Source information
Shown here is a 73-nucleotide RNA from Cloeon dipterum, a member of the family "mir-137 microRNA precursor family". Rfam 15.1 lists 1,138 matches to the family in 797 species. The family is grouped with related families in Rfam's "mir-137 clan". Lineage of the source: Eukaryota > Opisthokonta > Protostomia > Pancrustacea > Cloeon. The match comes from Rfam's covariance-model search (75 bits).
[Rfam]
RNA sequence: GUUGGCCACGCGUAUUCUUGGGUAAUUAACACAUUUCAAAGGAUGUUAUUGCUUGAGAAUACACGUCGCUGAC
Numbered sequence: 001g002u003u004g005g006c007c008a009c010g011c012g013u014a015u016u017c018u019u020g021g022g023u024a025a026u027u028a029a030c031a032c033a034u035u036u037c038a039a040a041g042g043a044u045g046u047u048a049u050u051g052c053u054u055g056a057g058a059a060u061a062c063a064c065g066u067c068g069c070u071g072a073c
Stems, first nucleotide, its partner, number of pairs: 001073005008066003012062012025050001027048005032042001